Source information
This 95-nucleotide sequence from Diabrotica balteata belongs to the Rfam family "mir-277 microRNA precursor family". Its family is annotated with miRNA-mediated post-transcriptional gene silencing and RISC complex in the Gene Ontology. For this family Rfam cites "MicroRNAs of Bombyx mori identified by Solexa sequencing" (Liu et al., BMC Genomics, 2010). NCBI's taxonomy places the organism under Eukaryota, Endopterygota, Coleoptera, Diabroticites, Diabrotica.

RNA sequence: UUCGUGGCUGACGUCGUGCCAGAAGCGCGUUUACACCGUAAAAGGUUCUGAUUGAAUUCUGUAAAUGCACUAUCUGGUACGACAGUCGGGCAUGU
Numbered sequence: 001u002u003c004g005u006g007g008c009u010g011a012c013g014u015c016g017u018g019c020c021a022g023a024a025g026c027g028c029g030u031u032u033a034c035a036c037c038g039u040a041a042a043a044g045g046u047u048c049u050g051a052u053u054g055a056a057u058u059c060u061g062u063a064a065a066u067g068c069a070c071u072a073u074c075u076g077g078u079a080c081g082a083c084a085g086u087c088g089g090g091c092a093u094g095u
Stems, first nucleotide, its partner, number of pairs: 008089004015081009025070001027068009
Rfam 15.1 lists 170 matches to the family in 166 species.